The record is a 134-nucleotide sequence from Sclerotinia sclerotiorum, which matches "Group II catalytic intron D1-D4-7" in Rfam. The pairing is the family consensus, mapped onto this sequence. Its family is annotated with Group II intron splicing in the Gene Ontology. Rfam 15.1 lists 1,296 matches to the family in 705 species. Taxonomically the source falls in Sclerotinia sclerotiorum (Eukaryota, Dikarya, Sclerotiniaceae, Sclerotinia).

RNA sequence: CCAGGUGUGUUCUCACCUGAGUCUAGGUGAACAUGCCAGACGGGUAACUGUCUGGUAUGAAGCUUCACUGACAACAUUUUUAACGAGAUAGCUUAAAGGUAGUAGUGUGCGCUUAGAACCUAAGCGAUUUUUAG
Numbered sequence: 001c002c003a004g005g006u007g008u009g010u011u012c013u014c015a016c017c018u019g020a021g022u023c024u025a026g027g028u029g030a031a032c033a034u035g036c037c038a039g040a041c042g043g044g045u046a047a048c049u050g051u052c053u054g055g056u057a058u059g060a061a062g063c064u065u066c067a068c069u070g071a072c073a074a075c076a077u078u079u080u081u082a083a084c085g086a087g088a089u090a091g092c093u094u095a096a097a098g099g100u101a102g103u104a105g106u107g108u109g110c111g112c113u114u115a116g117a118a119c120c121u122a123a124g125c126g127a128u129u130u131u132u133a134g
Stems, first nucleotide, its partner, number of pairs: 002019006027068005032059012081096001083094001085092001097121004105112002